Annotation: Shown here is a 70-nucleotide sequence from Gadus morhua, a member of the family "Small nucleolar RNA SNORD19". A search with the family's covariance model found it, with a score of 36 bits. It is annotated as a C/D-box small nucleolar RNA. Rfam 15.1 lists 1,431 matches to the family in 609 species.
[Rfam]
RNA sequence: AGGAAAUGAGGACACUAACGCAAGUCUGACUAUAAUGAAGACUUCUAAUCCAACUCUGAUCCUGCUGGCC
Numbered sequence: 001a002g003g004a005a006a007u008g009a010g011g012a013c014a015c016u017a018a019c020g021c022a023a024g025u026c027u028g029a030c031u032a033u034a035a036u037g038a039a040g041a042c043u044u045c046u047a048a049u050c051c052a053a054c055u056c057u058g059a060u061c062c063u064g065c066u067g068g069c070c
Stems, first nucleotide, its partner, number of pairs: 001063004